[Rfam]
RNA sequence: GUGGUGGCCUGGUGGUCGUAUGUAUGACGUCAUUUACUUCAAAGUUUGGAGUGACAUCAUAUGUACGGCUGCUAAACUGCUAC
Numbered sequence: 001g002u003g004g005u006g007g008c009c010u011g012g013u014g015g016u017c018g019u020a021u022g023u024a025u026g027a028c029g030u031c032a033u034u035u036a037c038u039u040c041a042a043a044g045u046u047u048g049g050a051g052u053g054a055c056a057u058c059a060u061a062u063g064u065a066c067g068g069c070u071g072c073u074a075a076a077c078u079g080c081u082a083c
Base pairs, nucleotide, nucleotide: 002082003081004080005079006078007077015069016068017067018066019065020064021063022062024060025059026058027057029055031053032052033051037049038048
Annotation: A member of the RNA family "mir-489 microRNA precursor family" from Danio rerio, 83 nucleotides long. For this family Rfam cites "Cloning and expression of new microRNAs from zebrafish" (Kloosterman et al., Nucleic Acids Res, 2006). It is one of the family's seed sequences.